[Rfam]
RNA sequence: CGUCUCCUCCAUGUCUCCUCCUGAUAUGGAUUUAGCCCGCCCACUCAGGCGGGCUUUUUCUU
Numbered sequence: 001c002g003u004c005u006c007c008u009c010c011a012u013g014u015c016u017c018c019u020c021c022u023g024a025u026a027u028g029g030a031u032u033u034a035g036c037c038c039g040c041c042c043a044c045u046c047a048g049g050c051g052g053g054c055u056u057u058u059u060c061u062u
Base pairs, nucleotide, nucleotide: 008030009029010028011027012026013025014024015023034055035054036053037052038051039050040049041048

This 62-nucleotide RNA from Paraburkholderia caffeinitolerans belongs to the Rfam family "Betaproteobacteria toxic small RNA".
The organism belongs to Paraburkholderia, within Bacteria.
The literature on the family includes a 2012 paper in Genome Res by Kimelman et al., "A vast collection of microbial genes that are toxic to bacteria".
The family's consensus secondary structure was predicted with WAR.
The match comes from Rfam's covariance-model search (72 bits).